Description:
The family of this 74-nucleotide RNA from Myotis lucifugus is "mir-9193 microRNA precursor family". The family's consensus secondary structure was predicted with RNAalifold. Its family is annotated with RISC complex and miRNA-mediated post-transcriptional gene silencing in the Gene Ontology. NCBI's taxonomy places the organism under Eukaryota, Chordata, Euteleostomi, Eutheria, Myotis. Rfam 15.1 lists 6,008 matches to the family in 8 species.
[Rfam]
RNA sequence: GGGGGGGGGGGGGGGUCCCUCAGCCCAAAUUGCAAGAGGGCACAGGCCAGGCCGAGGGACCCCACCAGUGCACA
Numbered sequence: 001g002g003g004g005g006g007g008g009g010g011g012g013g014g015g016u017c018c019c020u021c022a023g024c025c026c027a028a029a030u031u032g033c034a035a036g037a038g039g040g041c042a043c044a045g046g047c048c049a050g051g052c053c054g055a056g057g058g059a060c061c062c063c064a065c066c067a068g069u070g071c072a073c074a
Stems, first nucleotide, its partner, number of pairs: 004071001006069001009066002012063010023052003030045003